[Rfam]
RNA: MIR1886 microRNA precursor family
Organism: Solanum commersonii
RNA sequence: UUAGAUGGAACCAAUGUUUGGACAUGCGAUUUUACGUUGAUUUCAUCUGAUG
Numbered sequence: 001u002u003a004g005a006u007g008g009a010a011c012c013a014a015u016g017u018u019u020g021g022a023c024a025u026g027c028g029a030u031u032u033u034a035c036g037u038u039g040a041u042u043u044c045a046u047c048u049g050a051u052g
Base pairs, nucleotide, nucleotide: 001050002049003048004047005046006045007044008043009042010041012039013038014037015036016035017034018029019028020027
Dot-bracket structure: ((((((((((.(((((((((......)))....)))))).))))))))))..